RNA sequence: ACCAGUGAUGAUGAAAUCCAAUUAAAUGAGGUGUAACGGAUCUGAGUCCCUGUUUGACAGGGGGAACCUCUUAGUGAAAUUUCAUCAUUUGAUAUUAUUGGAUGUAACUGAGGU
Dot-bracket structure: (((............................................(((((.....))))).................................................)))
Overview:
The family of this 114-nucleotide RNA sequence from Beta vulgaris is "Small nucleolar RNA Z278". The source organism's lineage runs through Eukaryota, Viridiplantae, Pentapetalae, Betoideae and Beta vulgaris. The family's consensus secondary structure was predicted with PFOLD. Rfam classes the family as a C/D-box small nucleolar RNA. The literature on the family includes a 2003 paper in Nucleic Acids Res by Chen et al., "The high diversity of snoRNAs in plants: identification and comparative study of 120 snoRNA genes from Oryza sativa". Its family is annotated with RNA processing and nucleolus in the Gene Ontology. Rfam 15.1 lists 1,130 matches to the family in 214 species. From the family's description: snoZ278 is a C/D box small nucleolar RNA. Its methylation guide targets have not been reported.